Overview: The family of this 93-nucleotide RNA from Oryza meridionalis is "MIR439 microRNA precursor family". Gene Ontology terms of the family: miRNA-mediated post-transcriptional gene silencing and RISC complex. A reference for the family is Sunkar et al. (2005), "Cloning and characterization of microRNAs from rice", Plant Cell. The family has 7 seed sequences and 51 matches in Rfam 15.1. Pairs were carried over by alignment from the consensus structure, which was predicted with RNAalifold. Taxonomically the source falls in Oryza (Eukaryota, Streptophyta, Euphyllophyta, commelinids).
[Rfam]
RNA sequence: UACCCUGUCGAACUGACGCAGUGUGACAUGUACCUGUCGAACUGUGGUUAUUCGAUAGGUAUCCCUGUCGAACCGCGGUUGUUCAACAGGGUG
Numbered sequence: 001u002a003c004c005c006u007g008u009c010g011a012a013c014u015g016a017c018g019c020a021g022u023g024u025g026a027c028a029u030g031u032a033c034c035u036g037u038c039g040a041a042c043u044g045u046g047g048u049u050a051u052u053c054g055a056u057a058g059g060u061a062u063c064c065c066u067g068u069c070g071a072a073c074c075g076c077g078g079u080u081g082u083u084c085a086a087c088a089g090g091g092u093g
Stems, first nucleotide, its partner, number of pairs: 004090005010084004017077003021073002024070005030062012